[Rfam]
RNA sequence: UAACAUAGUUAAACACCCGUUAACCGAGACCUAUGGGUGUAUAAAUCACGUCUCUCAUAUCCCCGCUAAGGGUGCGGGGAGCAUAGUAUCUCCA
Numbered sequence: 001u002a003a004c005a006u007a008g009u010u011a012a013a014c015a016c017c018c019g020u021u022a023a024c025c026g027a028g029a030c031c032u033a034u035g036g037g038u039g040u041a042u043a044a045a046u047c048a049c050g051u052c053u054c055u056c057a058u059a060u061c062c063c064c065g066c067u068a069a070g071g072g073u074g075c076g077g078g079g080a081g082c083a084u085a086g087u088a089u090c091u092c093c094a
Stems, first nucleotide, its partner, number of pairs: 014039007026054005060080007
RNA: PhotoRC-II RNA